Rfam assigns this 138-nucleotide RNA sequence from Eutrema salsugineum to the family "MIR168 microRNA precursor family". Rfam links the family to the GO terms RISC complex and miRNA-mediated post-transcriptional gene silencing. It scores 82 bits against the family's covariance model. On this family, see Reinhart et al., Genes Dev 2002: "MicroRNAs in plants".
[Rfam]
RNA sequence: UCACUGUCGGGCUCGUAUUCGCUUGAUGCAGGUCGGGAAUCGAUUGGCUGACACGACCACUCGAACUUUUCCUUGUUGGUUUGUGAGUAGUCAUUGGAUCCCGACUUCAUCAACUGAAUCGGAGCCUCGCUGGUGAAA
Numbered sequence: 001u002c003a004c005u006g007u008c009g010g011g012c013u014c015g016u017a018u019u020c021g022c023u024u025g026a027u028g029c030a031g032g033u034c035g036g037g038a039a040u041c042g043a044u045u046g047g048c049u050g051a052c053a054c055g056a057c058c059a060c061u062c063g064a065a066c067u068u069u070u071c072c073u074u075g076u077u078g079g080u081u082u083g084u085g086a087g088u089a090g091u092c093a094u095u096g097g098a099u100c101c102c103g104a105c106u107u108c109a110u111c112a113a114c115u116g117a118a119u120c121g122g123a124g125c126c127u128c129g130c131u132g133g134u135g136a137a138a
Stems, first nucleotide, its partner, number of pairs: 013123002017119004023113006030107003034103005040097005